Notes: The family of this 390-nucleotide part of an RNA from Candidatus Cenarchaeum symbiosum is "Archaeal large subunit ribosomal RNA". Lineage of the source: Archaea > Thermoproteati > Nitrososphaerota > Candidatus Cenarchaeaceae > Candidatus Cenarchaeum. The family is grouped with related families in Rfam's "LSU clan".
RNA sequence: GGCAGUAACAGCAUAGUGCGGUGAGAAUCCGCACCACCGAAAGCGCAAGGGUUUCCAGGCAAUGCGUCGUCAGCCUGGAGUUAGUCGAUCCUAAGGGCUGCCUCAACAGAGUAGUCCGAAUGGGAAACCAGUUAAUAUUCUGGUACCUUGCAGGGAGCAUUUGAACCGCAUGGUUCGCUUCCGGAUAGGGGGAGCAUGACCGUCGUCGUGUCGAACCGUUCGAGGGCCUGGGAGUGUCGUAAUGACGAGAACAGGCCCGAGGCGGGAGUGGCUUUGCGUUAGCAGAGUUCCCCCGACUCCAGGAGACCAUGAAAGACCGUGCGGCUAGCAAACUGCAAGUUCGUACCCAGAUCCGACACAGGUGCGCUGGUUUAGUAAACUAAGGUGCUA
Numbered sequence: 001g002g003c004a005g006u007a008a009c010a011g012c013a014u015a016g017u018g019c020g021g022u023g024a025g026a027a028u029c030c031g032c033a034c035c036a037c038c039g040a041a042a043g044c045g046c047a048a049g050g051g052u053u054u055c056c057a058g059g060c061a062a063u064g065c066g067u068c069g070u071c072a073g074c075c076u077g078g079a080g081u082u083a084g085u086c087g088a089u090c091c092u093a094a095g096g097g098c099u100g101c102c103u104c105a106a107c108a109g110a111g112u113a114g115u116c117c118g119a120a121u122g123g124g125a126a127a128c129c130a131g132u133u134a135a136u137a138u139u140c141u142g143g144u145a146c147c148u149u150g151c152a153g154g155g156a157g158c159a160u161u162u163g164a165a166c167c168g169c170a171u172g173g174u175u176c177g178c179u180u181c182c183g184g185a186u187a188g189g190g191g192g193a194g195c196a197u198g199a200c201c202g203u204c205g206u207c208g209u210g211u212c213g214a215a216c217c218g219u220u221c222g223a224g225g226g227c228c229u230g231g232g233a234g235u236g237u238c239g240u241a242a243u244g245a246c247g248a249g250a251a252c253a254g255g256c257c258c259g260a261g262g263c264g265g266g267a268g269u270g271g272c273u274u275u276g277c278g279u280u281a282g283c284a285g286a287g288u289u290c291c292c293c294c295g296a297c298u299c300c301a302g303g304a305g306a307c308c309a310u311g312a313a314a315g316a317c318c319g320u321g322c323g324g325c326u327a328g329c330a331a332a333c334u335g336c337a338a339g340u341u342c343g344u345a346c347c348c349a350g351a352u353c354c355g356a357c358a359c360a361g362g363u364g365c366g367c368u369g370g371u372u373u374a375g376u377a378a379a380c381u382a383a384g385g386u387g388c389u390a
Base pairs, nucleotide, nucleotide: 016034017033018032019031020030021029035387036386037385038384043367044366045365046364049347050346054079055078056077057076058075059074063072064071086343087342088341090123091122095117096116097115098114099113100112102109103108127144128143129142130141131140147339148338149337150336151335152334153333171319172318173317178305179304180303181302183300184299185298188294189293190292191291192290194211195210196209197208198207216265217264218263219262226256227255228254229253230252236246237245238244277282353362354361368382369381370380371379
Notes: Its family is annotated with ribosome and structural constituent of ribosome in the Gene Ontology. The base pairs follow the family's consensus structure, which is taken from published work.